Annotation:
The family of this 178-nucleotide RNA sequence from Agrilus planipennis is "R2 RNA element". This family represents the 3' UTR region of the R2 retrotransposable element. This family is known to interact with the R2-encoded reverse transcriptase in a reaction known as target primed reverse transcription (TPRT). Rfam classes the family as a cis-regulatory element. Taxonomically the source falls in Agrilus (Eukaryota, Arthropoda, Hexapoda, Aparaglossata). A search with the family's covariance model found it, with a score of 47 bits.
[Rfam]
RNA sequence: GCUAACCAUGUGCGUGAAAAAUAGAAACAAUCAUCCUACAAAAUCAAUAAUGUCCUUUGAAGCCUGAGGUAGAGGGGUUUUAGUCGGUAGGUCCGAGGACUUCUUCCUCGGGAAUCCGACACUACCCAGUCGUACGGACGGCUGGGUGUCUUUUGAAGAUUUCCCCUCUUCCACGAAA
Numbered sequence: 001g002c003u004a005a006c007c008a009u010g011u012g013c014g015u016g017a018a019a020a021a022u023a024g025a026a027a028c029a030a031u032c033a034u035c036c037u038a039c040a041a042a043a044u045c046a047a048u049a050a051u052g053u054c055c056u057u058u059g060a061a062g063c064c065u066g067a068g069g070u071a072g073a074g075g076g077g078u079u080u081u082a083g084u085c086g087g088u089a090g091g092u093c094c095g096a097g098g099a100c101u102u103c104u105u106c107c108u109c110g111g112g113a114a115u116c117c118g119a120c121a122c123u124a125c126c127c128a129g130u131c132g133u134a135c136g137g138a139c140g141g142c143u144g145g146g147u148g149u150c151u152u153u154u155g156a157a158g159a160u161u162u163c164c165c166c167u168c169u170u171c172c173a174c175g176a177a178a
Base pairs, nucleotide, nucleotide: 002024003023004022034176035175037173068172069171071169072168074165075164076163083120084119085118086117087116092112093111094110095109096108097107098106099105122148124147125146126145127144128143